[Rfam]
RNA sequence: GGCGAUAAACGGAAGAUGCAAUAAACCCAUCGGACCCGGGGGCAGUACCCGGCGCCUCCACCACAACCGGCUCCGCCAGCACGGAGCGAAAGCCGAGACGGUUGUGAUGGGGGCGAUACAGGAUCGACGAGGGCGUAAAGAUCAACUUUUUGCCCGGCAUGGUUCCGCCGUUAUCGGGCCGACUCAAUAGUUGCAAACGACAACUAUGCGGAAGCGCGUCUCGCCGCUUAA
Numbered sequence: 001g002g003c004g005a006u007a008a009a010c011g012g013a014a015g016a017u018g019c020a021a022u023a024a025a026c027c028c029a030u031c032g033g034a035c036c037c038g039g040g041g042g043c044a045g046u047a048c049c050c051g052g053c054g055c056c057u058c059c060a061c062c063a064c065a066a067c068c069g070g071c072u073c074c075g076c077c078a079g080c081a082c083g084g085a086g087c088g089a090a091a092g093c094c095g096a097g098a099c100g101g102u103u104g105u106g107a108u109g110g111g112g113g114c115g116a117u118a119c120a121g122g123a124u125c126g127a128c129g130a131g132g133g134c135g136u137a138a139a140g141a142u143c144a145a146c147u148u149u150u151u152g153c154c155c156g157g158c159a160u161g162g163u164u165c166c167g168c169c170g171u172u173a174u175c176g177g178g179c180c181g182a183c184u185c186a187a188u189a190g191u192u193g194c195a196a197a198c199g200a201c202a203a204c205u206a207u208g209c210g211g212a213a214g215c216g217c218g219u220c221u222c223g224c225c226g227c228u229u230a231a
Base pairs, nucleotide, nucleotide: 001154002153003152004151005150015143016142017141026133027132028131030130031129032128036052037051038050039049040048053115054114055113056112057111058110059109155170156169157168158167